[Rfam]
RNA sequence: CUGGAAUGAUGCAACUUUAGCCAAACCAGACAAUGAUGUGCUCCUUGAGGCAUCUGCCUUUAAGCUUGCAACAACUGCUGAUAUGGAGAUCUCAACCAUGCAGUUUCCAAGCCAAAGCAAGCUGCCUUUUGUAGAAGCGCAUCUCUCUGAUGAUAACACAGAGAUCGUUUUCUUGCUGACCGGA
Numbered sequence: 001c002u003g004g005a006a007u008g009a010u011g012c013a014a015c016u017u018u019a020g021c022c023a024a025a026c027c028a029g030a031c032a033a034u035g036a037u038g039u040g041c042u043c044c045u046u047g048a049g050g051c052a053u054c055u056g057c058c059u060u061u062a063a064g065c066u067u068g069c070a071a072c073a074a075c076u077g078c079u080g081a082u083a084u085g086g087a088g089a090u091c092u093c094a095a096c097c098a099u100g101c102a103g104u105u106u107c108c109a110a111g112c113c114a115a116a117g118c119a120a121g122c123u124g125c126c127u128u129u130u131g132u133a134g135a136a137g138c139g140c141a142u143c144u145c146u147c148u149g150a151u152g153a154u155a156a157c158a159c160a161g162a163g164a165u166c167g168u169u170u171u172c173u174u175g176c177u178g179a180c181c182g183g184a
Stems, first nucleotide, its partner, number of pairs: 001183004
small nucleolar RNA snoR127: a 184-nucleotide RNA from Actinidia chinensis. The family's consensus secondary structure was predicted with RNAalifold. NCBI's taxonomy places the organism under Eukaryota, Streptophyta, asterids, Actinidiaceae, Actinidia chinensis. Rfam links the family to the GO terms nucleolus and RNA processing. It scores 48 bits against the family's covariance model.